[Rfam]
RNA: MIR2619 microRNA precursor family
RNA sequence: AAAUUGCCCUCUAAGUUUUGCAACUGUAGCAGUUCUGGCCCCCCAAGACAAAAAAAAUAAAUAACAUGUGCCACCUCACUUAGAGUGCCACAUCAACGUAGACCGAGUCAAAAUUGGUCUUGGGGGCCAAAACUGCCACAGGUGCAAAACUUAAGGGGCGGUUU
Number, nucleotide and partner (000 for none) at each position: 001a164002a163003a000004u161005u160006g159007c158008c157009c000010u000011c000012u153013a152014a151015g150016u149017u148018u147019u146020g145021c144022a143023a000024c141025u140026g139027u138028a000029g136030c135031a134032g133033u132034u131035c000036u129037g128038g127039c126040c125041c124042c123043c122044c000045a120046a000047g000048a000049c000050a000051a000052a000053a000054a000055a000056a000057a000058u000059a000060a000061a000062u000063a000064a000065c000066a093067u092068g000069u090070g089071c000072c087073a086074c085075c000076u000077c000078a000079c000080u000081u000082a000083g000084a000085g074086u073087g072088c000089c070090a069091c000092a067093u066094c000095a000096a000097c000098g000099u000100a000101g000102a000103c000104c000105g000106a000107g000108u000109c000110a000111a000112a000113a000114u000115u000116g000117g000118u000119c000120u045121u000122g043123g042124g041125g040126g039127c038128c037129a036130a000131a034132a033133c032134u031135g030136c029137c000138a027139c026140a025141g024142g000143u022144g021145c020146a019147a018148a017149a016150c015151u014152u013153a012154a000155g000156g000157g008158g007159c006160g005161g004162u000163u002164u001